[Rfam]
RNA sequence: UUACAGAUAUGGUGAUAUGGUGCCGAAGACAAUUGCCGGAAAGAUCUUUGGGUCAAUUUGCUCCCUGAGUGGCGUGCUGGUGAUCGCUCUGCCCGUCCCUGUCAUCGUGUCCAAC
Number, nucleotide and partner (000 for none) at each position: 001u114002u000003a000004c000005a000006g111007a000008u109009a108010u107011g106012g105013u000014g103015a102016u101017a100018u000019g098020g097021u000022g096023c095024c000025g000026a000027a000028g000029a000030c000031a000032a000033u000034u000035g000036c000037c000038g078039g077040a000041a075042a000043g000044a000045u000046c000047u000048u000049u000050g064051g063052g062053u000054c000055a000056a000057u000058u000059u000060g000061c000062u052063c051064c050065c000066u000067g000068a000069g000070u000071g000072g000073c000074g000075u041076g000077c039078u038079g000080g000081u000082g000083a000084u000085c000086g000087c000088u000089c000090u000091g000092c000093c000094c000095g023096u022097c020098c019099c000100u017101g016102u015103c014104a000105u012106c011107g010108u009109g008110u000111c006112c000113a000114a001115c000

Source information:
Rfam assigns this 115-nucleotide RNA from Polypterus senegalus to the family "Potassium channel RNA editing signal". The match comes from Rfam's covariance-model search (83 bits). From the family's description: This family represents a group of sequences related to the human potassium channel Kv1.1 hairpin element which directs the efficient modification of an adenosine to inosine by an adenosine deaminase acting on RNA (ADAR). The ADAR modification causes an isoleucine/valine recoding event which lies in the ion-conducting pore of the potassium channel. It is thought that this editing event targets the process of fast inactivation and allows a more rapid recovery from inactivation at negative potentials. By type it is a cis-regulatory element.